[Rfam]
RNA sequence: GGCCACCUUAGUAGCUUGUUCCAAACGGAACCUGCGGGCGGGGGGCUUUCAACAUAGCGGGUCCAAAGACAAUAACCUAAGGGCCUGCACGCUAAACGGAAGACAGAAA
Numbered sequence: 001g002g003c004c005a006c007c008u009u010a011g012u013a014g015c016u017u018g019u020u021c022c023a024a025a026c027g028g029a030a031c032c033u034g035c036g037g038g039c040g041g042g043g044g045g046c047u048u049u050c051a052a053c054a055u056a057g058c059g060g061g062u063c064c065a066a067a068g069a070c071a072a073u074a075a076c077c078u079a080a081g082g083g084c085c086u087g088c089a090c091g092c093u094a095a096a097c098g099g100a101a102g103a104c105a106g107a108a109a
Base pairs, nucleotide, nucleotide: 001047002046003045004044006043007042008041057088058087059086060085061084062083063082
Shown here is a 109-nucleotide RNA sequence from Leisingera methylohalidivorans, a member of the family "L2-Alphaproteobacteria ribosomal protein leader".
Rfam's curators put it in the seed alignment.